RNA sequence: CGAGCCCCCGCGGGAGAGUCCCGGUGCCGCGUCGUACGACGCCGCGCACCGGGCGCCGAAGGAGCAAGUUCCUCCCUUGAAUCUCUCAGGCCCCGUACCGCGAGGGUGAG
Numbered sequence: 001c002g003a004g005c006c007c008c009c010g011c012g013g014g015a016g017a018g019u020c021c022c023g024g025u026g027c028c029g030c031g032u033c034g035u036a037c038g039a040c041g042c043c044g045c046g047c048a049c050c051g052g053g054c055g056c057c058g059a060a061g062g063a064g065c066a067a068g069u070u071c072c073u074c075c076c077u078u079g080a081a082u083c084u085c086u087c088a089g090g091c092c093c094c095g096u097a098c099c100g101c102g103a104g105g106g107u108g109a110g
Base pairs, nucleotide, nucleotide: 006105007104009102010101011100012099013098020053021052022051023050024049025048026047027046055091056090057089058087059086062085063084064083068078

The family of this 110-nucleotide RNA sequence from Streptomyces mashuensis is "Glycine riboswitch aptamer".